Small nucleolar RNA SNORD101: a 75-nucleotide RNA from Electrophorus electricus. It is annotated as a C/D-box small nucleolar RNA.
[Rfam]
RNA sequence: GCUGAUGUGAUGAGCUCAUCUUUAGUCGGAUACCCCUUCACUCCACUCAUGAGUGAAACGCGCUGCCUGACCAGC
Numbered sequence: 001g002c003u004g005a006u007g008u009g010a011u012g013a014g015c016u017c018a019u020c021u022u023u024a025g026u027c028g029g030a031u032a033c034c035c036c037u038u039c040a041c042u043c044c045a046c047u048c049a050u051g052a053g054u055g056a057a058a059c060g061c062g063c064u065g066c067c068u069g070a071c072c073a074g075c
Base pairs, nucleotide, nucleotide: 001075002074003073004072
A search with the family's covariance model found it, with a score of 53 bits. Pairs were carried over by alignment from the consensus structure, which was predicted with PFOLD.